RNA sequence: CUCACACCCAUAUGUGUAGGACCCCAAAGGAUCACCAUUAAAUUUGGCAUAGAGAUCUAAAAAAGUUAUCACAUGGGUGUGAGACUUGACUUUUUUAGAGAUCUAUGCUAAAUUUAAUGGUGAUCCUUUGGGGUCCUACACACAUGGGUGUAGG
Numbered sequence: 001c002u003c004a005c006a007c008c009c010a011u012a013u014g015u016g017u018a019g020g021a022c023c024c025c026a027a028a029g030g031a032u033c034a035c036c037a038u039u040a041a042a043u044u045u046g047g048c049a050u051a052g053a054g055a056u057c058u059a060a061a062a063a064a065g066u067u068a069u070c071a072c073a074u075g076g077g078u079g080u081g082a083g084a085c086u087u088g089a090c091u092u093u094u095u096u097a098g099a100g101a102u103c104u105a106u107g108c109u110a111a112a113u114u115u116a117a118u119g120g121u122g123a124u125c126c127u128u129u130g131g132g133g134u135c136c137u138a139c140a141c142a143c144a145u146g147g148g149u150g151u152a153g154g
Stems, first nucleotide, its partner, number of pairs: 002153001004151008013142001015140014030125003034121020056099013069082005